[Rfam]
RNA sequence: GCAAAGGCCAUGAAGGGGAAGAGUAACCGGGCCACGCCCUCCAGAGAGCCGCCGGCCGGUGCGAGGCGGCGGGACGGGUCCGGCGAACACACCCUGGAGCCGCCGUUCGAAAGGCAGCGUGCCGAGUAGGUGCGGACGGAGACCCCCGCCGUUAGCGGAGGGGGAGGGCAUCGGCCCUGUGGCCCGUGCCCUGCCGAGUGGGUGCGUGCUUCCGGGUGCGCACCAAUGUGGGUGGUACCGCGAGAAAAGGCAUCUCGUCCCACAC
Dot-bracket structure: ......((......((((........(((((.....(((........((((((...........))))))))).....)))))........))))...))..((((.(.....................).)))).(((.........))).................................................(((((((((......)))))))))....((((.......(((((.........)))))))))...
Numbered sequence: 001g002c003a004a005a006g007g008c009c010a011u012g013a014a015g016g017g018g019a020a021g022a023g024u025a026a027c028c029g030g031g032c033c034a035c036g037c038c039c040u041c042c043a044g045a046g047a048g049c050c051g052c053c054g055g056c057c058g059g060u061g062c063g064a065g066g067c068g069g070c071g072g073g074a075c076g077g078g079u080c081c082g083g084c085g086a087a088c089a090c091a092c093c094c095u096g097g098a099g100c101c102g103c104c105g106u107u108c109g110a111a112a113g114g115c116a117g118c119g120u121g122c123c124g125a126g127u128a129g130g131u132g133c134g135g136a137c138g139g140a141g142a143c144c145c146c147c148g149c150c151g152u153u154a155g156c157g158g159a160g161g162g163g164g165a166g167g168g169c170a171u172c173g174g175c176c177c178u179g180u181g182g183c184c185c186g187u188g189c190c191c192u193g194c195c196g197a198g199u200g201g202g203u204g205c206g207u208g209c210u211u212c213c214g215g216g217u218g219c220g221c222a223c224c225a226a227u228g229u230g231g232g233u234g235g236u237a238c239c240g241c242g243a244g245a246a247a248a249g250g251c252a253u254c255u256c257g258u259c260c261c262a263c264a265c
Stems, first nucleotide, its partner, number of pairs: 007100002015095004027083005037073003048070006103135004108130001137151003201224009229262004240258005
The family of this 265-nucleotide RNA from Caldinitratiruptor microaerophilus is "T-box leader". Gene Ontology term of the family: tRNA binding. Rfam's curators write: Uncharged tRNA acts as the effector for transcription antitermination of genes in the T-box leader family. T-boxes are found upstream of many aminoacyl-tRNA synthetase genes and some amino acid biosynthetic genes usually in Gram-positive bacteria. The anticodon of a specific tRNA base pairs to a specifier sequence within the T-box motif, and the NCCA acceptor tail of the tRNA base pairs to a conserved bulge in the T-box antiterminator hairpin. Rfam classes the family as a cis-regulatory leader.